[Rfam]
RNA sequence: UUAACCCGCAAGACCGACGGCCCACCGCCGCCGCUGGGGCAAGCCCAGCCGCCGCCCACAACGCGGCGGGCGCUCAUGGGUAACAA
Numbered sequence: 001u002u003a004a005c006c007c008g009c010a011a012g013a014c015c016g017a018c019g020g021c022c023c024a025c026c027g028c029c030g031c032c033g034c035u036g037g038g039g040c041a042a043g044c045c046c047a048g049c050c051g052c053c054g055c056c057c058a059c060a061a062c063g064c065g066g067c068g069g070g071c072g073c074u075c076a077u078g079g080g081u082a083a084c085a086a
Stems, first nucleotide, its partner, number of pairs: 004081004014070002018030003033049004050068006
The family of this 86-nucleotide RNA sequence is "Twister_sister_ribozyme". Gene Ontology term of the family: catalytic activity. The family's consensus secondary structure is taken from published work.